[Rfam]
RNA sequence: AGAGGAGCCAUGAGGAUGAAAUUUAUUUUGGACUAGAGUUUCUGAUUUGGGUUUAUACCCAUUAGUUGAAGACUCACCCUUGGCUGUCUGAGCUUCUCU
Numbered sequence: 001a002g003a004g005g006a007g008c009c010a011u012g013a014g015g016a017u018g019a020a021a022u023u024u025a026u027u028u029u030g031g032a033c034u035a036g037a038g039u040u041u042c043u044g045a046u047u048u049g050g051g052u053u054u055a056u057a058c059c060c061a062u063u064a065g066u067u068g069a070a071g072a073c074u075c076a077c078c079c080u081u082g083g084c085u086g087u088c089u090g091a092g093c094u095u096c097u098c099u
Base pairs, nucleotide, nucleotide: 001099002098003097004096005095006094007093008092039071040070041069042068046064048061049060050059051058